Rfam assigns this 83-nucleotide sequence from Ehrlichia chaffeensis to the family "tRNA". Rfam links the family to the GO term triplet codon-amino acid adaptor activity. It scores 64 bits against the family's covariance model. Pairs were carried over by alignment from the consensus structure, which is taken from published work.
[Rfam]
RNA sequence: GGAGGAGUGGCCGAGCGGUCAAAGGCAGCAGACUGUAAAUCUGCCCACUAGCGUGUACGUAGGUUCAAAUCCUACCUCCUCCA
Numbered sequence: 001g002g003a004g005g006a007g008u009g010g011c012c013g014a015g016c017g018g019u020c021a022a023a024g025g026c027a028g029c030a031g032a033c034u035g036u037a038a039a040u041c042u043g044c045c046c047a048c049u050a051g052c053g054u055g056u057a058c059g060u061a062g063g064u065u066c067a068a069a070u071c072c073u074a075c076c077u078c079c080u081c082c083a
Stems, first nucleotide, its partner, number of pairs: 001082007010026003028044005059075005